[Rfam]
RNA: Small nucleolar RNA snoR138
Organism: Morus notabilis
RNA sequence: AUUGCCUCCCGAAUAACCAAAGGGUGGAAUUUUGAUACGACACCAUUUGGUUCAGACAGAGGCAGAUAGCAUCUUGAAGCGGUUUGAGGGUGGGGAACCUUUUUAUGUUCUUUUCCUAGACAGCUUCGUAUAUUU
Numbered sequence: 001a002u003u004g005c006c007u008c009c010c011g012a013a014u015a016a017c018c019a020a021a022g023g024g025u026g027g028a029a030u031u032u033u034g035a036u037a038c039g040a041c042a043c044c045a046u047u048u049g050g051u052u053c054a055g056a057c058a059g060a061g062g063c064a065g066a067u068a069g070c071a072u073c074u075u076g077a078a079g080c081g082g083u084u085u086g087a088g089g090g091u092g093g094g095g096a097a098c099c100u101u102u103u104u105a106u107g108u109u110c111u112u113u114u115c116c117u118a119g120a121c122a123g124c125u126u127c128g129u130a131u132a133u134u135u
Base pairs, nucleotide, nucleotide: 003064004063005062006061007060009059015052016051017050018049019048020047021046024043025042026041075128076127077126078125079124080123082106083105086101087100088099090098109120110119111118